A member of the RNA family "Rhodo-rpoB RNA" from Flavimaricola marinus, 92 nucleotides long.
[Rfam]
RNA sequence: AGGUCGGGAGGCGUCCGGUGGGACGGGCGCCACGCAUAGACCGGAACCCCCGCUCUCAAUGGGCGACGUGCCGCGGCCCCGGUGGCGCGACG
Numbered sequence: 001a002g003g004u005c006g007g008g009a010g011g012c013g014u015c016c017g018g019u020g021g022g023a024c025g026g027g028c029g030c031c032a033c034g035c036a037u038a039g040a041c042c043g044g045a046a047c048c049c050c051c052g053c054u055c056u057c058a059a060u061g062g063g064c065g066a067c068g069u070g071c072c073g074c075g076g077c078c079c080c081g082g083u084g085g086c087g088c089g090a091c092g
Stems, first nucleotide, its partner, number of pairs: 002042004010031008064092002067089007

It scores 64 bits against the family's covariance model. The organism belongs to Flavimaricola, within Bacteria.